This 77-nucleotide RNA from Crocodylus porosus belongs to the Rfam family "Mammalian CPEB3 ribozyme". The family's consensus secondary structure is taken from published work. Rfam's curators write: The mammalian CPEB3 ribozyme is a self cleaving RNA located in the second intron of the CPEB3 gene which belongs to a family of genes regulating messenger RNA polyadenylation.
RNA sequence: GGUGCAUGAUUCAAGGCCAUAGCAGAAGCCUUCACUGUGCAGCCCUGUCAGAUUCUGACAAAUCUGUGAAUUCAGCU
Numbered sequence: 001g002g003u004g005c006a007u008g009a010u011u012c013a014a015g016g017c018c019a020u021a022g023c024a025g026a027a028g029c030c031u032u033c034a035c036u037g038u039g040c041a042g043c044c045c046u047g048u049c050a051g052a053u054u055c056u057g058a059c060a061a062a063u064c065u066g067u068g069a070a071u072u073c074a075g076c077u
Base pairs, nucleotide, nucleotide: 015044016043017042021077022076023075025073026072027071028040029039049066050065051064052063053062054061